[Rfam]
Record summary:
Shown here is a 104-nucleotide RNA from Mycolicibacterium brumae, a member of the family "mraW RNA".
Nucleotides: 104
Stems, first nucleotide, its partner, number of pairs: 011090006018083002021080010034064002037061004042056003
Number, partner (000 for none) and nucleotide at each position: 001000c002000c003000c004000g005000g006000g007000c008000c009000g010000c011090g012089c013088a014087c015086c016085g017000c018083g019082g020000u021080c022079u023078c024077u025076g026075u027074c028073c029072g030071a031000a032000c033000g034064g035063g036000c037061c038060c039059u040058g041000a042056c043055g044054c045000a046000c047000u048000u049000c050000c051000c052000c053000g054044g055043c056042g057000c058040c059039a060038g061037g062000u063035u064034c065000g066000c067000g068000a069000a070000g071030u072029c073028g074027g075026g076025c077024a078023g079022g080021g081000g082019c083018c084000a085016c086015g087014g088013u089012g090011c091000a092000c093000g094000g095000c096000a097000g098000g099000c100000u101000c102000g103000a104000c